[Rfam]
RNA sequence: AUGGUCCGCGACAACAAGUCGGGCAAGAUGUCGGCCGACAAGCUUCAGGCCGCGUGAUUAUCAUCCAUUCGGCCGGUGACCACAGAUGUACUGGCACCAGUGGCUGAACGGAUGACAAGGAAGGGUCAGGCGAGUGCCUGGCCUUUUUUGUU
Numbered sequence: 001a002u003g004g005u006c007c008g009c010g011a012c013a014a015c016a017a018g019u020c021g022g023g024c025a026a027g028a029u030g031u032c033g034g035c036c037g038a039c040a041a042g043c044u045u046c047a048g049g050c051c052g053c054g055u056g057a058u059u060a061u062c063a064u065c066c067a068u069u070c071g072g073c074c075g076g077u078g079a080c081c082a083c084a085g086a087u088g089u090a091c092u093g094g095c096a097c098c099a100g101u102g103g104c105u106g107a108a109c110g111g112a113u114g115a116c117a118a119g120g121a122a123g124g125g126u127c128a129g130g131c132g133a134g135u136g137c138c139u140g141g142c143c144u145u146u147u148u149u150g151u152u
Stems, first nucleotide, its partner, number of pairs: 003059004007054003062114005068108001072101002077096002080094003115151008124143008
Alphaproteobacterial sRNA ar35: a 152-nucleotide RNA sequence from Pseudaminobacter soli. It is annotated as a small RNA. Rfam 15.1 lists 266 matches to the family in 153 species.